RNA sequence: GACUCUGGCCGCAACUGGCGUAGAAGAUGGAUACCAUCGGGGAGCGGCAUAACGAGCAAGCCGCGCGCCUGGGCAUGAAAG
Numbered sequence: 001g002a003c004u005c006u007g008g009c010c011g012c013a014a015c016u017g018g019c020g021u022a023g024a025a026g027a028u029g030g031a032u033a034c035c036a037u038c039g040g041g042g043a044g045c046g047g048c049a050u051a052a053c054g055a056g057c058a059a060g061c062c063g064c065g066c067g068c069c070u071g072g073g074c075a076u077g078a079a080a081g
Stems, first nucleotide, its partner, number of pairs: 004052001008048005015041002017069005027037004058076001060074003
RNA: ZMP/ZTP riboswitch aptamer (pfl RNA motif)
Organism: Ancrocorticia populi